[Rfam]
RNA sequence: GCCAUACUACGAUGCUACGAAGUGGGGUGCAACGAGGGCGAAAGUAAACGAUGACCCUCAGGGAACUCUACGUUAAAAUACGUAUCAAAAUGCAAAACCAAUCCUGACUUGGGUCUUCGACUCCGGGUUAGGUUUUUUU
Numbered sequence: 001g002c003c004a005u006a007c008u009a010c011g012a013u014g015c016u017a018c019g020a021a022g023u024g025g026g027g028u029g030c031a032a033c034g035a036g037g038g039c040g041a042a043a044g045u046a047a048a049c050g051a052u053g054a055c056c057c058u059c060a061g062g063g064a065a066c067u068c069u070a071c072g073u074u075a076a077a078a079u080a081c082g083u084a085u086c087a088a089a090a091u092g093c094a095a096a097a098c099c100a101a102u103c104c105u106g107a108c109u110u111g112g113g114u115c116u117u118c119g120a121c122u123c124c125g126g127g128u129u130a131g132g133u134u135u136u137u138u139u
Base pairs, nucleotide, nucleotide: 001055003053004052005051010050011049014045015044056063057062072086074084075083103132104131105130106129107128108127109126110125111124112123113122
Annotation:
Rfam assigns this 139-nucleotide sequence from Ewingella americana to the family "Enterobacteria greA leader". The organism belongs to Ewingella americana, within Bacteria.